[Rfam]
RNA sequence: UAGGUUCCGGUUCACGUCCUGCCAUAGGGGCAUGACGACCCGGGUCC
Number, nucleotide and partner (000 for none) at each position: 001u000002a000003g047004g046005u000006u000007c043008c042009g041010g040011u000012u000013c000014a000015c037016g036017u035018c034019c000020u032021g031022c030023c029024a000025u000026a000027g000028g000029g023030g022031c021032a020033u000034g018035a017036c016037g015038a000039c000040c010041c009042g008043g007044g000045u000046c004047c003

Shown here is a 47-nucleotide RNA, a member of the family "L31-Actinobacteria ribosomal protein leader".